[Rfam]
RNA: Small Cajal body specific RNA 6
Organism: Cavia porcellus
RNA sequence: GGUCGAUGAUGACUGGUAAAAGGUCUGAUGCACCGAAUAUCACAGUCCCCUCUCUGCCCUCGGCUCCCAGCAGCCCAUUGUGUUUCCCGGCACGGUUAAGUUGUGUGCCCGGGAUAGUGGAGCAGCUGAUACGCAGGGACCCUGUCGUGUGUGUUUCUGAGAGUGAGCGACUCACAGCCGACCCAGGUCCAACAUGACCACCUCACAGGAGCAUGAGGAGUGGCAGGAUGCUGUGAUGGUGCAUGAUCUCAAGUUUUCAAUCUGAGACC
Number, nucleotide and partner (000 for none) at each position: 001g269002g268003u267004c266005g000006a000007u000008g000009a000010u000011g000012a000013c000014u000015g000016g000017u000018a000019a000020a000021a000022g000023g000024u000025c000026u000027g000028a000029u000030g000031c000032a000033c000034c000035g000036a000037a249038u000039a247040u246041c245042a000043c000044a000045g000046u228047c227048c226049c223050c222051u000052c220053u219054c000055u000056g000057c000058c000059c000060u000061c000062g000063g000064c211065u210066c209067c208068c128069a127070g126071c125072a000073g123074c122075c000076c000077a000078u000079u000080g000081u000082g000083u000084u000085u000086c113087c112088c111089g110090g109091c000092a000093c107094g106095g000096u000097u000098a000099a000100g000101u000102u000103g000104u000105g000106u094107g093108c000109c090110c089111g088112g087113g086114a000115u000116a000117g000118u000119g000120g000121a000122g074123c073124a000125g071126c070127u069128g068129a000130u000131a000132c000133g000134c000135a000136g190137g000138g189139a188140c187141c186142c000143u000144g000145u000146c000147g000148u176149g175150u174151g173152u000153g171154u170155u169156u000157c167158u166159g000160a000161g000162a000163g000164u000165g000166a158167g157168c000169g155170a154171c153172u000173c151174a150175c149176a148177g000178c000179c000180g000181a000182c000183c000184c000185a000186g141187g140188u139189c138190c136191a000192a000193c000194a000195u000196g000197a000198c000199c000200a000201c000202c000203u000204c000205a000206c000207a000208g067209g066210a065211g064212c000213a000214u000215g000216a000217g000218g000219a053220g052221u000222g050223g049224c000225a000226g048227g047228a046229u000230g000231c000232u000233g000234u000235g000236a000237u000238g000239g000240u000241g000242c000243a000244u000245g041246a040247u039248c000249u037250c000251a000252a000253g000254u000255u000256u000257u000258c000259a000260a000261u000262c000263u000264g000265a000266g004267a003268c002269c001